Rfam assigns this 97-nucleotide RNA sequence from Mesoplasma lactucae to the family "Bacterial small signal recognition particle RNA". The base pairs follow the family's consensus structure, which is taken from published work. Lineage of the source: Bacteria > Mycoplasmatota > Entomoplasmataceae > Mesoplasma > Mesoplasma lactucae.
[Rfam]
RNA sequence: UAAUUUUGCCAGUAUAAAGAUAACGUCUGAACCUAGUCAGGACCGGAAGGUAGCAGCUAUAAGGAUCUGUGUCUUGUAUAUUGGUUUUUUAUUUAUU
Numbered sequence: 001u002a003a004u005u006u007u008g009c010c011a012g013u014a015u016a017a018a019g020a021u022a023a024c025g026u027c028u029g030a031a032c033c034u035a036g037u038c039a040g041g042a043c044c045g046g047a048a049g050g051u052a053g054c055a056g057c058u059a060u061a062a063g064g065a066u067c068u069g070u071g072u073c074u075u076g077u078a079u080a081u082u083g084g085u086u087u088u089u090u091a092u093u094u095a096u097u
Stems, first nucleotide, its partner, number of pairs: 004091001008087001009084006015076001017075006026064003034059004042051003